[Rfam]
RNA sequence: AAAUCCAGAAAAGAGACGGACAGGGUCCUUUAGUCCGUCUCUUUUCUGAAUUUUA
Number, nucleotide and partner (000 for none) at each position: 001a053002a052003a051004u050005c000006c048007a047008g046009a045010a044011a043012a042013g041014a040015g039016a038017c037018g036019g035020a034021c033022a000023g000024g000025g000026u000027c000028c000029u000030u000031u000032a000033g021034u020035c019036c018037g017038u016039c015040u014041c013042u012043u011044u010045u009046c008047u007048g006049a000050a004051u003052u002053u001054u000055a000